[Rfam]
RNA sequence: GACGCAGGCCGCCUUAUCGCCACGCUUUAAAGCUUGGAGGAAAGUCCGGACACCAAAGGGAAGCAUAGUGGUUAACAGCCACCGGCCGAAAGGUUAGGACAAGUGCAGCAGAAAGAAUGUACAGGUAAUGCUGUAGUGAAACCAGGUAAACUCUAUGCGGUGCAAUACCAUGUAUACCGGCGCUUAAGAUUGCCCGAUCAAUGCCGGAGGGUAGGUAGCUAGAGAUUUUUGGCAACAAAAAUUCGAGAUAAAUGAUAAGGGUUCUAAUUUAUUAGAAUACAGAAUCCGGCUUAUAGGCCUGCUAUUUUU
Number, nucleotide and partner (000 for none) at each position: 001g305002a000003c000004g302005c301006a300007g299008g298009c297010c296011g294012c260013c259014u258015u257016a256017u255018c254019g000020c037021c036022a035023c000024g033025c032026u031027u000028u000029a000030a000031a026032g025033c024034u000035u022036g021037g020038a000039g000040g000041a000042a292043a291044g290045u000046c289047c288048g287049g286050a285051c162052a161053c160054c159055a000056a000057a000058g195059g194060g193061a000062a000063g158064c157065a156066u155067a154068g082069u081070g080071g079072u078073u000074a000075a000076c000077a000078g072079c071080c070081a069082c068083c097084g095085g094086c093087c092088g000089a000090a000091a000092g087093g086094u085095u084096a000097g083098g153099a152100c000101a000102a000103g151104u150105g147106c146107a000108g000109c000110a000111g000112a000113a000114a000115g000116a000117a000118u000119g000120u135121a134122c133123a132124g131125g000126u000127a000128a000129u000130g000131c124132u123133g122134u121135a120136g000137u000138g000139a000140a000141a000142c000143c000144a000145g000146g106147u105148a000149a000150a104151c103152u099153c098154u067155a066156u065157g064158c063159g054160g053161u052162g051163c000164a000165a000166u217167a216168c215169c214170a000171u000172g000173u000174a000175u000176a000177c207178c206179g205180g204181c203182g000183c000184u000185u000186a000187a000188g199189a198190u197191u196192g000193c060194c059195c058196g191197a190198u189199c188200a000201a000202u000203g181204c180205c179206g178207g177208a000209g000210g000211g000212u000213a000214g169215g168216u167217a166218g000219c000220u000221a000222g000223a000224g243225a242226u241227u240228u239229u238230u237231g236232g000233c000234a000235a000236c231237a230238a229239a228240a227241a226242u225243u224244c000245g000246a000247g000248a000249u000250a000251a000252a000253u000254g018255a017256u016257a015258a014259g013260g012261g000262u000263u000264c000265u000266a000267a000268u000269u000270u000271a000272u000273u000274a000275g000276a000277a000278u000279a000280c000281a000282g000283a000284a000285u050286c049287c048288g047289g046290c044291u043292u042293a000294u011295a000296g010297g009298c008299c007300u006301g005302c004303u000304a000305u001306u000307u000308u000309u000
RNA: Bacterial RNase P class A